[Rfam]
The family of this 247-nucleotide RNA sequence from Melghirimyces profundicolus is "T-box leader". The match comes from Rfam's covariance-model search (102 bits). NCBI's taxonomy places the organism under Bacteria, Bacilli, Caryophanales, Thermoactinomycetaceae, Melghirimyces. Rfam classes the family as a cis-regulatory leader.
RNA sequence: UCAACGGCUGUGAAGGAGAGGAGUACCGCCAUACGUCCCUGCCAGGGAGGGAAUGCCUUGACUGGAAGCAUCCCAGGGAAACGGUGGCGGGAAGUUCGCUCCCGAGCUGUCCCCCGAACCUUCCCUGUAUCGGAAGCAGUAAGGGGUUACCGGUUGAAUCCGUUAUCGUCUCAAUGAGUGGGGCAACCUUUGCCGUGCGUCGGGUUGUCCAACCAAGGGUGGUACCACGAAAUCUCUCGUCCCUCGG
Numbered sequence: 001u002c003a004a005c006g007g008c009u010g011u012g013a014a015g016g017a018g019a020g021g022a023g024u025a026c027c028g029c030c031a032u033a034c035g036u037c038c039c040u041g042c043c044a045g046g047g048a049g050g051g052a053a054u055g056c057c058u059u060g061a062c063u064g065g066a067a068g069c070a071u072c073c074c075a076g077g078g079a080a081a082c083g084g085u086g087g088c089g090g091g092a093a094g095u096u097c098g099c100u101c102c103c104g105a106g107c108u109g110u111c112c113c114c115c116g117a118a119c120c121u122u123c124c125c126u127g128u129a130u131c132g133g134a135a136g137c138a139g140u141a142a143g144g145g146g147u148u149a150c151c152g153g154u155u156g157a158a159u160c161c162g163u164u165a166u167c168g169u170c171u172c173a174a175u176g177a178g179u180g181g182g183g184c185a186a187c188c189u190u191u192g193c194c195g196u197g198c199g200u201c202g203g204g205u206u207g208u209c210c211a212a213c214c215a216a217g218g219g220u221g222g223u224a225c226c227a228c229g230a231a232a233u234c235u236c237u238c239g240u241c242c243c244u245c246g247g
Base pairs, nucleotide, nucleotide: 007107008106015102016101017100018099026090027089028088029087030086031085038077039076040075049074050073053071054070055069056068110149112145113144114143151162152161153160181210182209183208184207185206186205187204188203189202216244217243218242219241227240228239229238230237